This 82-nucleotide RNA from Flavobacterium sp. belongs to the Rfam family "Flavo-1 RNA". The match comes from Rfam's covariance-model search (59 bits). It is annotated as a small RNA. Rfam 15.1 lists 7,497 matches to the family in 411 species. The family's consensus secondary structure is taken from published work.
[Rfam]
RNA sequence: CAAUAGCCCUGAUCGUCGUGAAAAUCCUUUUGUAGCCGGCAGCAGGCAGGCACAAAAGAUUGCAACAAGAGCAGGAAAAAGC
Number, nucleotide and partner (000 for none) at each position: 001c000002a000003a000004u000005a000006g000007c000008c000009c074010u073011g072012a000013u070014c069015g000016u000017c000018g066019u065020g000021a000022a000023a061024a060025u059026c058027c000028u000029u056030u055031u054032g053033u052034a000035g051036c050037c049038g000039g000040c000041a000042g000043c000044a000045g000046g000047c000048a000049g037050g036051c035052a033053c032054a031055a030056a029057a000058g026059a025060u024061u023062g000063c000064a000065a019066c018067a000068a000069g014070a013071g000072c011073a010074g009075g000076a000077a000078a000079a000080a000081g000082c000